[Rfam]
RNA sequence: CCCGCCCAUGAAUGGGCGGGCUAUUCGCGAACGUCCCUACGGGACG
Numbered sequence: 001c002c003c004g005c006c007c008a009u010g011a012a013u014g015g016g017c018g019g020g021c022u023a024u025u026c027g028c029g030a031a032c033g034u035c036c037c038u039a040c041g042g043g044a045c046g
Base pairs, nucleotide, nucleotide: 001020002019003018004017005016006015007014008013033045034044035043036042037041
Acido-Lenti-1 RNA: a 46-nucleotide RNA from Candidatus Moduliflexus flocculans. The organism belongs to Candidatus Moduliflexus, within Bacteria.